The record is an 89-nucleotide RNA from Brassica rapa, which matches "mir-395 microRNA precursor family" in Rfam. On this family, see Jones-Rhoades and Bartel, Mol Cell 2004: "Computational Identification of Plant MicroRNAs and Their Targets, Including a Stress-Induced miRNA". The match comes from Rfam's covariance-model search (66 bits). From the family's description: mir-395 was identified in both Arabidopsis thaliana and Oryza sativa computationally and was later experimentally verified. mir-395 is thought to target mRNAs coding for ATP sulphurylases. The mature sequence is excised from the 3' arm of the hairpin.
RNA sequence: CUAUUCUCAAGAGUUCCUUCGAACACUUCACUGAAAAACCUGUCAAUAAUUUUUUUUACUGAAGUGUUUGGAGGAACUCCAGAUAAUAU
Number, nucleotide and partner (000 for none) at each position: 001c000002u000003a000004u000005u085006c000007u083008c082009a000010a000011g079012a078013g077014u076015u075016c074017c073018u072019u071020c070021g000022a069023a068024c066025a065026c064027u063028u062029c061030a060031c000032u058033g057034a056035a055036a000037a000038a000039c000040c000041u000042g000043u000044c000045a000046a000047u000048a000049a000050u000051u000052u000053u000054u000055u035056u034057u033058a032059c000060u030061g029062a028063a027064g026065u025066g024067u000068u023069u022070g020071g019072a018073g017074g016075a015076a014077c013078u012079c011080c000081a000082g008083a007084u000085a005086a000087u000088a000089u000